This 208-nucleotide RNA sequence from Paenibacillus baekrokdamisoli belongs to the Rfam family "c-di-AMP riboswitch aptamer (ydaO/yuaA leader)". Gene Ontology terms of the family: cyclic-di-AMP binding and regulation of gene expression.
RNA sequence: ACCAAAUAAACGCUUAAUCUCCGUUAUUCGGAGAGCGGGGGAACCAAGUGUUGAAACUGUUUGUAUCAUUACAAAACAGAGUAGACGUUGAAUUCUUCUUGGGGUGAAUUUUGUGACGAUGCUGCGCAUGUUUAGCAUCCUAAUGAAUAGGGCGACUCUCUUUGCCCGAAUCCGACAGCUAACCUCGUAAGCGUAAAUAAGAGAGAUC
Numbered sequence: 001a002c003c004a005a006a007u008a009a010a011c012g013c014u015u016a017a018u019c020u021c022c023g024u025u026a027u028u029c030g031g032a033g034a035g036c037g038g039g040g041g042a043a044c045c046a047a048g049u050g051u052u053g054a055a056a057c058u059g060u061u062u063g064u065a066u067c068a069u070u071a072c073a074a075a076a077c078a079g080a081g082u083a084g085a086c087g088u089u090g091a092a093u094u095c096u097u098c099u100u101g102g103g104g105u106g107a108a109u110u111u112u113g114u115g116a117c118g119a120u121g122c123u124g125c126g127c128a129u130g131u132u133u134a135g136c137a138u139c140c141u142a143a144u145g146a147a148u149a150g151g152g153c154g155a156c157u158c159u160c161u162u163u164g165c166c167c168g169a170a171u172c173c174g175a176c177a178g179c180u181a182a183c184c185u186c187g188u189a190a191g192c193g194u195a196a197a198u199a200a201g202a203g204a205g206a207u208c
Stems, first nucleotide, its partner, number of pairs: 011193004018034006035188006045101004102173003110147004150167004

Notes:
A search with the family's covariance model found it, with a score of 94 bits. The organism belongs to Paenibacillus, within Bacteria.